[Rfam]
RNA sequence: GCUGAUGCUGGCGAUGAUGCCGAUGGUUCGAGCUGGAGACGGGGUGCUAUGUCACUGUUGUCACUGUCAUCAUCACCAGU
Numbered sequence: 001g002c003u004g005a006u007g008c009u010g011g012c013g014a015u016g017a018u019g020c021c022g023a024u025g026g027u028u029c030g031a032g033c034u035g036g037a038g039a040c041g042g043g044g045u046g047c048u049a050u051g052u053c054a055c056u057g058u059u060g061u062c063a064c065u066g067u068c069a070u071c072a073u074c075a076c077c078a079g080u
Stems, first nucleotide, its partner, number of pairs: 001077001003075005009069005015063003021060007029051002031048003